[Rfam]
This 80-nucleotide RNA sequence from Flavobacterium johnsoniae belongs to the Rfam family "Flavo-1 RNA". NCBI's taxonomy places the organism under Bacteria, Bacteroidota, Flavobacteriia, Flavobacteriales, Flavobacterium johnsoniae. The sequence is in the family's curated seed alignment.

RNA sequence: CCCUAGCCCCGAUAGAAGCGGAAAUCCUUUUUGUGGCGGGGUUCGCCACAAAAAGAUUGAAGAGGAUAGCGGGAUUUAGC
Dot-bracket structure: ........(((.((....(...((((..((((((((((.....)))))))))).))))...)....)).)))........